Shown here is a 76-nucleotide RNA from Pelosinus fermentans, a member of the family "Glycine riboswitch aptamer". It scores 33 bits against the family's covariance model. Pairs were carried over by alignment from the consensus structure.
RNA sequence: CUCUGGAAAGAUCGCUAUGCGGCACCCAAGGAGUAACCGAGAUAUUCGGGAUUCUCUGUAGGUAAAUAAGACAGAG
Numbered sequence: 001c002u003c004u005g006g007a008a009a010g011a012u013c014g015c016u017a018u019g020c021g022g023c024a025c026c027c028a029a030g031g032a033g034u035a036a037c038c039g040a041g042a043u044a045u046u047c048g049g050g051a052u053u054c055u056c057u058g059u060a061g062g063u064a065a066a067u068a069a070g071a072c073a074g075a076g
Base pairs, nucleotide, nucleotide: 001076002075003074004073005072012022013021014020015019024063025062026061027058028057031056032055033054037049038048